The family of this 158-nucleotide RNA from Raineyella fluvialis is "c-di-AMP riboswitch aptamer (ydaO/yuaA leader)".
[Rfam]
RNA sequence: UUUGUCAUCACGCUCAGGCAGAAGCGGGGGAACCACUUGUGACCGACCAACCAGGCCGGCCUUGGGGUGAAGCCGACGGGGACCAUCACAUCCCCCGACGCCGGGUGCCUCCCACCCGAACCCGACAGCUCACUUCGCAGGCGUAACGGAGGCCUCAU
Numbered sequence: 001u002u003u004g005u006c007a008u009c010a011c012g013c014u015c016a017g018g019c020a021g022a023a024g025c026g027g028g029g030g031a032a033c034c035a036c037u038u039g040u041g042a043c044c045g046a047c048c049a050a051c052c053a054g055g056c057c058g059g060c061c062u063u064g065g066g067g068u069g070a071a072g073c074c075g076a077c078g079g080g081g082a083c084c085a086u087c088a089c090a091u092c093c094c095c096c097g098a099c100g101c102c103g104g105g106u107g108c109c110u111c112c113c114a115c116c117c118g119a120a121c122c123c124g125a126c127a128g129c130u131c132a133c134u135u136c137g138c139a140g141g142c143g144u145a146a147c148g149g150a151g152g153c154c155u156c157a158u
Stems, first nucleotide, its partner, number of pairs: 001023003024138006034064002065123003073100001103117004
Gene Ontology terms of the family: cyclic-di-AMP binding and regulation of gene expression.